[Rfam]
RNA sequence: CCUGCUAUGCGACUAGCAGUAGCCUAGGGAGACAUGCGUCACUGGUAACGGUGGGGUGUGAAGCUCUCCUGACAAUGUAGCCCCCGAAAGGGUGCCGUCCAGUCGUGAGACAGGCGGUAGAGGCUC
Numbered sequence: 001c002c003u004g005c006u007a008u009g010c011g012a013c014u015a016g017c018a019g020u021a022g023c024c025u026a027g028g029g030a031g032a033c034a035u036g037c038g039u040c041a042c043u044g045g046u047a048a049c050g051g052u053g054g055g056g057u058g059u060g061a062a063g064c065u066c067u068c069c070u071g072a073c074a075a076u077g078u079a080g081c082c083c084c085c086g087a088a089a090g091g092g093u094g095c096c097g098u099c100c101a102g103u104c105g106u107g108a109g110a111c112a113g114g115c116g117g118u119a120g121a122g123g124c125u126c
Stems, first nucleotide, its partner, number of pairs: 002019006028069005033060005039054006082092003093119004103110002
Shown here is a 126-nucleotide sequence, a member of the family "Group II catalytic intron D1-D4-7". Rfam's curators put it in the seed alignment. The base pairs follow the family's consensus structure. About the family: Group II introns are found in rRNA, tRNA and mRNA of organelles in fungi, plants and protists, and also in mRNA in bacteria. A reference for the family is Bonen and Vogel (2001), "The ins and outs of group II introns", Trends Genet.